[Rfam]
RNA sequence: GUCAACCACCCCCGGCACAAGGCCGGGGGCUUGCGAGCGAUUAGCCGCAAGCCCCGGUUGACUAGCCUGAGAGGAAUUAACCUCUCCCGUAAACCCGUAUUGGGCGAGCGGGGAUCUUAAAGGAUCCAAGUUAUCCCGGUCACGCCACCGGCGGGUGUAGCCCGAGCCUGCCGCUCUGGCUCCCGUGACGAAAGUCCUGCCCGGUAUCAAAGCCGGACAGCUUUAAACAGUCCUGGGGGUAAGGGACAGUGAGGCGGGAGUAAAAAGCCGGGAUAACGUUGGCGACGGGCACAAUAA
Numbered sequence: 001g002u003c004a005a006c007c008a009c010c011c012c013c014g015g016c017a018c019a020a021g022g023c024c025g026g027g028g029g030c031u032u033g034c035g036a037g038c039g040a041u042u043a044g045c046c047g048c049a050a051g052c053c054c055c056g057g058u059u060g061a062c063u064a065g066c067c068u069g070a071g072a073g074g075a076a077u078u079a080a081c082c083u084c085u086c087c088c089g090u091a092a093a094c095c096c097g098u099a100u101u102g103g104g105c106g107a108g109c110g111g112g113g114a115u116c117u118u119a120a121a122g123g124a125u126c127c128a129a130g131u132u133a134u135c136c137c138g139g140u141c142a143c144g145c146c147a148c149c150g151g152c153g154g155g156u157g158u159a160g161c162c163c164g165a166g167c168c169u170g171c172c173g174c175u176c177u178g179g180c181u182c183c184c185g186u187g188a189c190g191a192a193a194g195u196c197c198u199g200c201c202c203g204g205u206a207u208c209a210a211a212g213c214c215g216g217a218c219a220g221c222u223u224u225a226a227a228c229a230g231u232c233c234u235g236g237g238g239g240u241a242a243g244g245g246a247c248a249g250u251g252a253g254g255c256g257g258g259a260g261u262a263a264a265a266a267g268c269c270g271g272g273a274u275a276a277c278g279u280u281g282g283c284g285a286c287g288g289g290c291a292c293a294a295u296a297a
Base pairs, nucleotide, nucleotide: 001062002061003060004059005058006057007056010029011028012026013025015023016022030051031050032049033048034047035046065283066282067281069279071126072125130277131276132275133274134273135272136271137270138269139268140267145179146178149173150172151171152170153169154168155167156166160290161289162288163287164286181259182258183257184256185255186254189251193250194247195246196245197244198243

This 297-nucleotide sequence from Neomoorella thermoacetica belongs to the Rfam family "HNH endonuclease-associated RNA and ORF (HEARO) RNA". Lineage of the source: Bacteria > Bacillati > Bacillota > Clostridia > Neomoorella. It is annotated as a non-coding RNA gene. It scores 97 bits against the family's covariance model.